RNA: TD-1 RNA
Organism: Treponema denticola
RNA sequence: AAAACGCUGUCGAGUUUGCCUUUCGGCAAACAUCGCUUUAUUGUAUGCCGUUUCUCACUGACGUUACGAAACGGCGAAUUGAACAGCUUCCAAAAUUGAUAUUUUGUUCAGCUGUUCAAUUUUAAG
Numbered sequence: 001a002a003a004a005c006g007c008u009g010u011c012g013a014g015u016u017u018g019c020c021u022u023u024c025g026g027c028a029a030a031c032a033u034c035g036c037u038u039u040a041u042u043g044u045a046u047g048c049c050g051u052u053u054c055u056c057a058c059u060g061a062c063g064u065u066a067c068g069a070a071a072c073g074g075c076g077a078a079u080u081g082a083a084c085a086g087c088u089u090c091c092a093a094a095a096u097u098g099a100u101a102u103u104u105u106g107u108u109c110a111g112c113u114g115u116u117c118a119a120u121u122u123u124a125a126g
Stems, first nucleotide, its partner, number of pairs: 012034002014031007047075008078120011091106006